[Rfam]
RNA: Group II catalytic intron D1-D4-7
Organism: Streptococcus pneumoniae
RNA sequence: CCAACUAUUCCGUUAGUUGAGCCGAGUAUCGACUGCACUUAGGUGUGGUAAGCCGAUAUUAAAGUAGCCCUAAUUGAGGUAAAACCGUGAGGAAAUGCCGAAACUGCCAGCAACAAGGUGGUUAGGGAG
Numbered sequence: 001c002c003a004a005c006u007a008u009u010c011c012g013u014u015a016g017u018u019g020a021g022c023c024g025a026g027u028a029u030c031g032a033c034u035g036c037a038c039u040u041a042g043g044u045g046u047g048g049u050a051a052g053c054c055g056a057u058a059u060u061a062a063a064g065u066a067g068c069c070c071u072a073a074u075u076g077a078g079g080u081a082a083a084a085c086c087g088u089g090a091g092g093a094a095a096u097g098c099c100g101a102a103a104c105u106g107c108c109a110g111c112a113a114c115a116a117g118g119u120g121g122u123u124a125g126g127g128a129g
Stems, first nucleotide, its partner, number of pairs: 002019006027058005032049007070076001078099004085092002103122006